[Rfam]
RNA sequence: GCAGCGGUUUAGCUCAGUGGUUACUUCAAUCAACUGACGAUACCUAGCUCCACCGACCUCCGGGUCAGGAGUUCGAACCUCGGGCGCUGUCCGCUGUUUUC
Numbered sequence: 001g002c003a004g005c006g007g008u009u010u011a012g013c014u015c016a017g018u019g020g021u022u023a024c025u026u027c028a029a030u031c032a033a034c035u036g037a038c039g040a041u042a043c044c045u046a047g048c049u050c051c052a053c054c055g056a057c058c059u060c061c062g063g064g065u066c067a068g069g070a071g072u073u074c075g076a077a078c079c080u081c082g083g084g085c086g087c088u089g090u091c092c093g094c095u096g097u098u099u100u101c
Stems, first nucleotide, its partner, number of pairs: 002096006012085004017081001019079002025077003029073001
Source information: Rfam assigns this 101-nucleotide sequence from Etheostoma spectabile to the family "Vault RNA". A reference for the family is Stadler et al. (2009), "Evolution of Vault RNAs", Mol Biol Evol. From the family's description: This family of RNAs are found as part of the enigmatic vault ribonucleoprotein complex.